[Rfam]
RNA sequence: AAAAAAGCAGGGGCUUGUUGCCUUUGUGGACAGGUCUCUCGUAAACUUCAGGGAAAUUAGUUGCAUUAUUAUUGGGUGAACCUCUGGAGUUUUUUGUGAUGGAAGGCUCAGUAAAUAAUGGCACAUUG
Number, nucleotide and partner (000 for none) at each position: 001a000002a000003a000004a000005a048006a047007g046008c000009a000010g000011g037012g036013g000014c034015u033016u032017g031018u000019u000020g000021c000022c000023u000024u000025u000026g000027u000028g000029g000030a000031c017032a016033g015034g014035u000036c012037u011038c000039u000040c000041g000042u000043a000044a000045a000046c007047u006048u005049c000050a000051g000052g000053g000054a000055a000056a000057u000058u000059a000060g000061u000062u000063g000064c120065a119066u118067u117068a116069u115070u114071a000072u000073u000074g000075g000076g000077u110078g109079a108080a000081c106082c105083u104084c000085u000086g000087g000088a000089g000090u000091u000092u000093u000094u000095u000096g000097u000098g000099a000100u000101g000102g000103a000104a083105g082106g081107c000108u079109c078110a077111g000112u000113a000114a070115a069116u068117a067118a066119u065120g064121g000122c000123a000124c000125a000126u000127u000128g000
Record summary:
Rfam assigns this 128-nucleotide RNA sequence from Vitis vinifera to the family "Small nucleolar RNA snoR74". It is one of the family's seed sequences. Taxonomically the source falls in Vitis (Eukaryota, Streptophytina, Euphyllophyta, Pentapetalae).